Bradyrhizobiaceae sRNA BjrC174: a 134-nucleotide sequence from Bradyrhizobium diazoefficiens.
The source organism's lineage runs through Bacteria, Pseudomonadati, Pseudomonadota, Alphaproteobacteria and Bradyrhizobium diazoefficiens.
On this family, see Madhugiri et al., RNA Biol 2012: "Small RNAs of the Bradyrhizobium/Rhodopseudomonas lineage and their analysis".
RNA sequence: CCUGCACUGCGAAAAGAGCUGUGUGCGUUGACCCGGUCCUUUCGGUUCCGGAUUCCUCAGCCCCCAGCCCCCCGGGGUCGACGGGAUCGGGUCUGUACGCGCGACAAGGAGGGCCAACGCGAGUUGGUCCUUUU
Numbered sequence: 001c002c003u004g005c006a007c008u009g010c011g012a013a014a015a016g017a018g019c020u021g022u023g024u025g026c027g028u029u030g031a032c033c034c035g036g037u038c039c040u041u042u043c044g045g046u047u048c049c050g051g052a053u054u055c056c057u058c059a060g061c062c063c064c065c066a067g068c069c070c071c072c073c074g075g076g077g078u079c080g081a082c083g084g085g086a087u088c089g090g091g092u093c094u095g096u097a098c099g100c101g102c103g104a105c106a107a108g109g110a111g112g113g114c115c116a117a118c119g120c121g122a123g124u125u126g127g128u129c130c131u132u133u134u
Stems, first nucleotide, its partner, number of pairs: 002108002004019002007016002022103007030093011043080009060068002111130008